The family of this 81-nucleotide RNA from Sakesphorus luctuosus is "mir-26 microRNA precursor family". NCBI's taxonomy places the organism under Eukaryota, Opisthokonta, Teleostomi, Coelurosauria, Sakesphorus. The family has 82 seed sequences and 2,251 matches in Rfam 15.1. It scores 58 bits against the family's covariance model. Rfam links the family to the GO terms RISC complex and miRNA-mediated post-transcriptional gene silencing.
[Rfam]
RNA sequence: UUGUCUCCCAGUGCAAGUAACCAAGAAUAGGCCAGUCAGAAUAGAUACAGCCUAUCCUGGAUUACUUGAACCAGGCCACAG
Numbered sequence: 001u002u003g004u005c006u007c008c009c010a011g012u013g014c015a016a017g018u019a020a021c022c023a024a025g026a027a028u029a030g031g032c033c034a035g036u037c038a039g040a041a042u043a044g045a046u047a048c049a050g051c052c053u054a055u056c057c058u059g060g061a062u063u064a065c066u067u068g069a070a071c072c073a074g075g076c077c078a079c080a081g
Base pairs, nucleotide, nucleotide: 002080003079004078007075008074011071012070014068015067016066017065018064019063020062022060024058025057027055028054029053030052031051032050
Dot-bracket structure: .(((..((..((.(((((((.(.((.((((((.................)))))).)).).))))))).))..))..))).